[Rfam]
RNA sequence: ACAGGUCUUCGAGGCGGGGUGAAAUUCCCCACCGGCGGUAUAGUCCGCAAGCGGCAAUUUUGCCGCACGAUCCGGUGCGAUUCCGGAACCGACGGUCACAGUCCGGAUGAGAGAAGAUGUGC
Numbered sequence: 001a002c003a004g005g006u007c008u009u010c011g012a013g014g015c016g017g018g019g020u021g022a023a024a025u026u027c028c029c030c031a032c033c034g035g036c037g038g039u040a041u042a043g044u045c046c047g048c049a050a051g052c053g054g055c056a057a058u059u060u061u062g063c064c065g066c067a068c069g070a071u072c073c074g075g076u077g078c079g080a081u082u083c084c085g086g087a088a089c090c091g092a093c094g095g096u097c098a099c100a101g102u103c104c105g106g107a108u109g110a111g112a113g114a115a116g117a118u119g120u121g122c
Base pairs, nucleotide, nucleotide: 003120005118006117007116008115009114010113017029018028019027031102032101033091034090035048036047037046038045043089044088051066052065053064071087072086073085074084075083093105094104095103